Nucleotides: 075
Base pairs, nucleotide, nucleotide: 002036003035004034005033007031008030010028011027012026013025038071039070040069041068042067043066044065045064046063047062048061049060050059
Number, partner (000 for none) and nucleotide at each position: 001000a002036a003035c004034g005033c006000a007031c008030c009000a010028g011027c012026u013025c014000c015000c016000u017000c018000c019000c020000c021000c022000c023000c024000g025013g026012a027011g028010u029000a030008g031007g032000c033005g034004c035003g036002u037000u038071g039070a040069c041068g042067g043066c044065c045064c046063c047062g048061g049060u050059u051000a052000u053000c054000c055000c056000c057000c058000c059050a060049a061048c062047c063046g064045g065044g066043g067042c068041c069040g070039u071038c072000g073000u074000g075000c

Shown here is a 75-nucleotide RNA sequence from Janibacter alkaliphilus, a member of the family "6C RNA". Gene Ontology term of the family: sporulation. The family's consensus secondary structure is taken from published work. It scores 48 bits against the family's covariance model.